[Rfam]
RNA sequence: AAUGUGCGUCGCCGUAGAACUGGGGUUUCAAAGCGGUAUGUGCCUUCGAUUAUGCAAUGCCCUUGGAAAUCCCAAACGUGCUGGCGACCACC
Number, nucleotide and partner (000 for none) at each position: 001a000002a000003u000004g000005u000006g000007c000008g088009u087010c086011g085012c084013c083014g081015u080016a079017g000018a000019a000020c000021u074022g073023g072024g071025g070026u069027u068028u067029c066030a000031a064032a063033g062034c000035g061036g060037u059038a058039u057040g000041u056042g055043c054044c000045u000046u000047c000048g000049a000050u000051u000052a000053u000054g043055c042056a041057a039058u038059g037060c036061c035062c033063u032064u031065g000066g029067a028068a027069a026070u025071c024072c023073c022074a021075a000076a000077c000078g000079u016080g015081c014082u000083g013084g012085c011086g010087a009088c008089c000090a000091c000092c000
Shown here is a 92-nucleotide sequence from Bombyx mori, a member of the family "mir-2788 microRNA precursor family". The base pairs follow the family's consensus structure, which was predicted with RNAalifold. Rfam 15.1 lists 89 matches to the family in 88 species. It scores 102 bits against the family's covariance model.